A member of the RNA family "Group II catalytic intron D1-D4-6" from Thiorhodococcus minor, 216 nucleotides long. The base pairs follow the family's consensus structure. A reference for the family is Bonen and Vogel (2001), "The ins and outs of group II introns", Trends Genet. Rfam 15.1 lists 1,617 matches to the family in 661 species. A search with the family's covariance model found it, with a score of 162 bits.

[Rfam]
RNA sequence: AGAAUUCCGCCCGGAAAGGGUUGGCCACCCACCGGAAGCGAGUCUUGCGUGGUGUCGGGUAACCGGCGCUGCGAAGCGUAGACAGCGAGCGUGCAGGCUGUGUGAUUGAGCCCCGAAAUGACAGCACCGCGGGGGCCGACGUUUUCAAGACGACGGAAGGCAACACCGAAGCGCCUGAUUGGCCUGGCGCCCAGGUCUCGCCGGGGUCGAAGAGCA
Numbered sequence: 001a002g003a004a005u006u007c008c009g010c011c012c013g014g015a016a017a018g019g020g021u022u023g024g025c026c027a028c029c030c031a032c033c034g035g036a037a038g039c040g041a042g043u044c045u046u047g048c049g050u051g052g053u054g055u056c057g058g059g060u061a062a063c064c065g066g067c068g069c070u071g072c073g074a075a076g077c078g079u080a081g082a083c084a085g086c087g088a089g090c091g092u093g094c095a096g097g098c099u100g101u102g103u104g105a106u107u108g109a110g111c112c113c114c115g116a117a118a119u120g121a122c123a124g125c126a127c128c129g130c131g132g133g134g135g136c137c138g139a140c141g142u143u144u145u146c147a148a149g150a151c152g153a154c155g156g157a158a159g160g161c162a163a164c165a166c167c168g169a170a171g172c173g174c175c176u177g178a179u180u181g182g183c184c185u186g187g188c189g190c191c192c193a194g195g196u197c198u199c200g201c202c203g204g205g206g207u208c209g210a211a212g213a214g215c216a
Stems, first nucleotide, its partner, number of pairs: 011035004018030004023184003038086002042083004046078002048073011107210001108208001110207006129201006135161003140155004166195002171190005